The family of this 106-nucleotide RNA from Mesocricetus auratus is "mir-223 microRNA precursor family". The literature on the family includes a 2003 paper in Science by Lim et al., "Vertebrate microRNA genes". The match comes from Rfam's covariance-model search (119 bits). Pairs were carried over by alignment from the consensus structure, which was predicted with RNAalifold.
RNA sequence: UUGGCCUUCUGCAGUGUCACGCUCCGUGUAUUUGACAAGCUGAGUUAGACACUCUGUGUGGUAGAGUGUCAGUUUGUCAAAUACCCCAAGUGUGGCUCAUGCCUAU
Numbered sequence: 001u002u003g004g005c006c007u008u009c010u011g012c013a014g015u016g017u018c019a020c021g022c023u024c025c026g027u028g029u030a031u032u033u034g035a036c037a038a039g040c041u042g043a044g045u046u047a048g049a050c051a052c053u054c055u056g057u058g059u060g061g062u063a064g065a066g067u068g069u070c071a072g073u074u075u076g077u078c079a080a081a082u083a084c085c086c087c088a089a090g091u092g093u094g095g096c097u098c099a100u101g102c103c104u105a106u
Base pairs, nucleotide, nucleotide: 020092021091022090023089026086028084029083030082031081032080033079034078035077036076037075038074039073040072041071048070049069050068051067053065054064